[Rfam]
RNA sequence: UUUCUAUCCAGAGAGGUGGAGGGACUGGCCCUGCGAAACCUCGGCAACAUGUAAAUGUGCCAAUUCCAGCAAGCGAGGCUUGAAAGAUAGAAA
Numbered sequence: 001u002u003u004c005u006a007u008c009c010a011g012a013g014a015g016g017u018g019g020a021g022g023g024a025c026u027g028g029c030c031c032u033g034c035g036a037a038a039c040c041u042c043g044g045c046a047a048c049a050u051g052u053a054a055a056u057g058u059g060c061c062a063a064u065u066c067c068a069g070c071a072a073g074c075g076a077g078g079c080u081u082g083a084a085a086g087a088u089a090g091a092a093a
Base pairs, nucleotide, nucleotide: 001093002092003091004090005089006088007087008086013042014041015040016039017038021031022030023029025069026068027067028066043061044060045059046058048057049056065085070082071081072080073079074078

Overview:
The family of this 93-nucleotide RNA from Bacillus thermotolerans is "SAM riboswitch aptamer (S box leader)". It scores 87 bits against the family's covariance model. Rfam links the family to the GO term regulation of gene expression. From the family's description: The SAM riboswitch is found upstream of a number of genes which code for proteins involved in methionine or cysteine biosynthesis in Gram-positive bacteria. The SAM riboswitch acts at the level of transcription termination control. The predicted structure consists of a complex stem-loop region followed by a single stem loop terminator region. An alternative and mutually exclusive form involves bases in the 3' segment of helix 1 with those in the 5' region of helix 5 to form a structure termed the anti-terminator form. The family's consensus secondary structure is taken from published work.